[Rfam]
RNA sequence: GGGGCAUUAUGAGGAUAGUUUGUUCUGAAUUUUUGUGAUUGAUUAACACAACCUCCUACUCAUUCUGA
Numbered sequence: 001g002g003g004g005c006a007u008u009a010u011g012a013g014g015a016u017a018g019u020u021u022g023u024u025c026u027g028a029a030u031u032u033u034u035g036u037g038a039u040u041g042a043u044u045a046a047c048a049c050a051a052c053c054u055c056c057u058a059c060u061c062a063u064u065c066u067g068a
Stems, first nucleotide, its partner, number of pairs: 006063002009060001026045002030041001
Dot-bracket structure: .....((.(................((..(..........)..))..............).)).....
Background: This 68-nucleotide sequence from Phtheirospermum japonicum belongs to the Rfam family "Small nucleolar RNA Z105". The source organism's lineage runs through Eukaryota, Embryophyta, Tracheophyta, Euphyllophyta and Phtheirospermum. Gene Ontology terms of the family: RNA processing and nucleolus. The family's consensus secondary structure was predicted with CMfinder. For this family Rfam cites "The high diversity of snoRNAs in plants: identification and comparative study of 120 snoRNA genes from Oryza sativa" (Chen et al., Nucleic Acids Res, 2003). A search with the family's covariance model found it, with a score of 48 bits.